[Rfam]
RNA sequence: GAAUAAUACUGUUUUGCUAUUUCCGAUUAAUAACACAAUGACAUAUAGAAAAAUUAUCCUAUGUAUCAUAGCGUUAUUGGCCGAAAAUAGCAAAAAAUAUUA
Numbered sequence: 001g002a003a004u005a006a007u008a009c010u011g012u013u014u015u016g017c018u019a020u021u022u023c024c025g026a027u028u029a030a031u032a033a034c035a036c037a038a039u040g041a042c043a044u045a046u047a048g049a050a051a052a053a054u055u056a057u058c059c060u061a062u063g064u065a066u067c068a069u070a071g072c073g074u075u076a077u078u079g080g081c082c083g084a085a086a087a088u089a090g091c092a093a094a095a096a097a098u099a100u101u102a
Stems, first nucleotide, its partner, number of pairs: 012095009022085001024083002027080008036071001038069004043064006050057001

The record is a 102-nucleotide sequence from Prunus armeniaca, which matches "MIR6274 microRNA precursor family" in Rfam. Rfam links the family to the GO terms miRNA-mediated post-transcriptional gene silencing and RISC complex. NCBI's taxonomy places the organism under Eukaryota, Spermatophyta, eudicotyledons, Amygdaloideae, Prunus. A search with the family's covariance model found it, with a score of 82 bits.